[Rfam]
This 124-nucleotide sequence from Roseibium album belongs to the Rfam family "SAM-I/IV (S-adenosyl methionine) riboswitch aptamer". It scores 62 bits against the family's covariance model. Rfam links the family to the GO terms regulation of gene expression and S-adenosylmethionine metabolic process. Clan: SAM clan.

RNA sequence: UCCCAUCAUCAAGAGAAGGGCUGGCGCCCUCGCCAACCUGCCGAACCGGGCAAGGUGGUUUCCGCAACAGGGAUGCGGCCGGAUGGAACCUCAUAGAGGUAUUCCGGCAAUGAAGCGGUUCAAU
Numbered sequence: 001u002c003c004c005a006u007c008a009u010c011a012a013g014a015g016a017a018g019g020g021c022u023g024g025c026g027c028c029c030u031c032g033c034c035a036a037c038c039u040g041c042c043g044a045a046c047c048g049g050g051c052a053a054g055g056u057g058g059u060u061u062c063c064g065c066a067a068c069a070g071g072g073a074u075g076c077g078g079c080c081g082g083a084u085g086g087a088a089c090c091u092c093a094u095a096g097a098g099g100u101a102u103u104c105c106g107g108c109a110a111u112g113a114a115g116c117g118g119u120u121c122a123a124u
Base pairs, nucleotide, nucleotide: 007075008074009073010072015031017030018029019028020027021026032059033058034057037055038054039053040051041050042049044120045119046118047117048116078108079107080106081105082104083103